[Rfam]
RNA sequence: GGUUUAAAGGGUCCGUAGGCGGGCGAUUAAGUCAGUGGUGAAAGUCUGCAGCUCAACUGUAGAAUUGCCAUUGAUACUGGUUGUCUUGAAUGGUUGUGAAGUGGCUAGAAUAUGUGGUGUAGCGGUGAAAUGCUUAGAUAUCACAUAGAAUACCGAUUGCGAAGGCAGGUCACUAACAACGCAUUGACGCUGAUGGACGAAAGCGUGGGGAGCGAACAGGAUUAGAUACCCUGGUAGUCCACGCCGUAAACGAUGGAUACUAGCUGUCCGGACCACGUUGGUGGUCUGGGUGGCCCAGCGAAAGUGAUAAGUAUCCCACCUGGGGAGUACGUUCGCAAGAAUGAAACUCAAAGGAAU
Numbered sequence: 001g002g003u004u005u006a007a008a009g010g011g012u013c014c015g016u017a018g019g020c021g022g023g024c025g026a027u028u029a030a031g032u033c034a035g036u037g038g039u040g041a042a043a044g045u046c047u048g049c050a051g052c053u054c055a056a057c058u059g060u061a062g063a064a065u066u067g068c069c070a071u072u073g074a075u076a077c078u079g080g081u082u083g084u085c086u087u088g089a090a091u092g093g094u095u096g097u098g099a100a101g102u103g104g105c106u107a108g109a110a111u112a113u114g115u116g117g118u119g120u121a122g123c124g125g126u127g128a129a130a131u132g133c134u135u136a137g138a139u140a141u142c143a144c145a146u147a148g149a150a151u152a153c154c155g156a157u158u159g160c161g162a163a164g165g166c167a168g169g170u171c172a173c174u175a176a177c178a179a180c181g182c183a184u185u186g187a188c189g190c191u192g193a194u195g196g197a198c199g200a201a202a203g204c205g206u207g208g209g210g211a212g213c214g215a216a217c218a219g220g221a222u223u224a225g226a227u228a229c230c231c232u233g234g235u236a237g238u239c240c241a242c243g244c245c246g247u248a249a250a251c252g253a254u255g256g257a258u259a260c261u262a263g264c265u266g267u268c269c270g271g272a273c274c275a276c277g278u279u280g281g282u283g284g285u286c287u288g289g290g291u292g293g294c295c296c297a298g299c300g301a302a303a304g305u306g307a308u309a310a311g312u313a314u315c316c317c318a319c320c321u322g323g324g325g326a327g328u329a330c331g332u333u334c335g336c337a338a339g340a341a342u343g344a345a346a347c348u349c350a351a352a353g354g355a356a357u
Base pairs, nucleotide, nucleotide: 001320002319003318009317011198012197013196014195016192018191019190020189022085023084024083025082026081027080028079030078031077032074033073034072035071036070037069038068039067040066045063046062047061048060049059050058051057089185090184091183093180094179095178096177097176100174101173102172103171104170105169106168107151111147112146113145114144115143116142117141118140122133123132124131159166160165203244204243205242206241207240208239212238213237217233218232219231220230255316256315257314258313259312260311263294264293265292266291267290268289269288270287271286272285273284274283298305299304322349323348324347331342332341333340334339
A member of the RNA family "Bacterial small subunit ribosomal RNA" from Aequorivita ciconiae, 357 nucleotides of a longer RNA.
Pairs were carried over by alignment from the consensus structure, which is taken from published work.
Gene Ontology terms of the family: structural constituent of ribosome and ribosome.